[Rfam]
RNA sequence: UGCAGCCUCGUCAAAUUCAGCCCCGCCCACUCCUGGCGGCCGCUGGCCAAUGGGCUGCUACAGAGUCCUGUAGCUCAUGGGCCUCGUUUUCUCUACCGUAGAAUGUGAGGAUAAAAUUGUGCUACAGACAUUG
Numbered sequence: 001u002g003c004a005g006c007c008u009c010g011u012c013a014a015a016u017u018c019a020g021c022c023c024c025g026c027c028c029a030c031u032c033c034u035g036g037c038g039g040c041c042g043c044u045g046g047c048c049a050a051u052g053g054g055c056u057g058c059u060a061c062a063g064a065g066u067c068c069u070g071u072a073g074c075u076c077a078u079g080g081g082c083c084u085c086g087u088u089u090u091c092u093c094u095a096c097c098g099u100a101g102a103a104u105g106u107g108a109g110g111a112u113a114a115a116a117u118u119g120u121g122c123u124a125c126a127g128a129c130a131u132u133g
Stems, first nucleotide, its partner, number of pairs: 002058004018045004023039005070125005075119001082110002085107003
Record summary:
This 133-nucleotide RNA from Aquarana catesbeiana belongs to the Rfam family "Small nucleolar RNA SNORA5". ACA5 is a member of the H/ACA class of snoRNA that guide the sites of modification of uridines to pseudouridines. The base pairs follow the family's consensus structure, which was predicted with RNAfold. The source organism's lineage runs through Eukaryota, Opisthokonta, Vertebrata, Amphibia and Aquarana. Rfam 15.1 lists 2,226 matches to the family in 629 species. The family is grouped with related families in Rfam's "SNORA5 clan". It is annotated as an H/ACA-box small nucleolar RNA.